[Rfam]
Rfam assigns this 262-nucleotide RNA sequence from Nitrospiraceae bacterium AH_259_D15_M11_P09 to the family "Group I catalytic intron". The family's consensus secondary structure is taken from published work. The source organism's lineage runs through Bacteria, Pseudomonadati, Nitrospirota, Nitrospirales and Nitrospiraceae. Rfam's curators write: Group I catalytic introns are large self-splicing ribozymes. They catalyse their own excision from mRNA, tRNA and rRNA precursors in a wide range of organisms. The core secondary structure consists of 9 paired regions (P1-P9). These fold to essentially two domains - the P4-P6 domain (formed from the stacking of P5, P4, P6 and P6a helices) and the P3-P9 domain (formed from the P8, P3, P7 and P9 helices). The secondary structure mark-up for this family represents only this conserved core. Group I catalytic introns often have long ORFs inserted in loop regions. The window size for this search is chosen to minimise search time and catch the small examples. A larger window size will find more matches.

RNA sequence: GAUCGGCUGUAGACGCAACUGCAGCUUCCACAGGAAACUGUGGUUGAAACAUCGGGUGAAUUCAGGGAAGCCUGCCCCGAAGUCGUUGUGAUUCGGAAUGGUAACCCUGAGCGAAGCCUGCCGAAGGGCCAAUGCGUAGGCAGGAACGUGCAGAGACUCAGAGGCUGAGGAGCCUGCCCAAUAAGGCCUCACAAGCGCCCGACACCCUCCCUUGGAUUCCAAGCGGGUGAAGAGAUAGUCCGAGCCCAGUAGAAAUGCUGGG
Numbered sequence: 001g002a003u004c005g006g007c008u009g010u011a012g013a014c015g016c017a018a019c020u021g022c023a024g025c026u027u028c029c030a031c032a033g034g035a036a037a038c039u040g041u042g043g044u045u046g047a048a049a050c051a052u053c054g055g056g057u058g059a060a061u062u063c064a065g066g067g068a069a070g071c072c073u074g075c076c077c078c079g080a081a082g083u084c085g086u087u088g089u090g091a092u093u094c095g096g097a098a099u100g101g102u103a104a105c106c107c108u109g110a111g112c113g114a115a116g117c118c119u120g121c122c123g124a125a126g127g128g129c130c131a132a133u134g135c136g137u138a139g140g141c142a143g144g145a146a147c148g149u150g151c152a153g154a155g156a157c158u159c160a161g162a163g164g165c166u167g168a169g170g171a172g173c174c175u176g177c178c179c180a181a182u183a184a185g186g187c188c189u190c191a192c193a194a195g196c197g198c199c200c201g202a203c204a205c206c207c208u209c210c211c212u213u214g215g216a217u218u219c220c221a222a223g224c225g226g227g228u229g230a231a232g233a234g235a236u237a238g239u240c241c242g243a244g245c246c247c248a249g250u251a252g253a254a255a256u257g258c259u260g261g262g
Base pairs, nucleotide, nucleotide: 005026006025007024008023009022010021011020012019030041031040032039052202053201054200055199057197058196062110063109064108065107066106067105071101072100111149112148117143124137126135153241155240156239157238158237205227206226207225247260248259249258250257251256
Dot-bracket structure: ....((((((((......))))))))...(((......)))..........((((.((...((((((...((...........................))...))))))((....(......(.(........).).....)....))...[.[[[[.....................................)).))))..(((.................))).........]]]]].....(((((....)))))..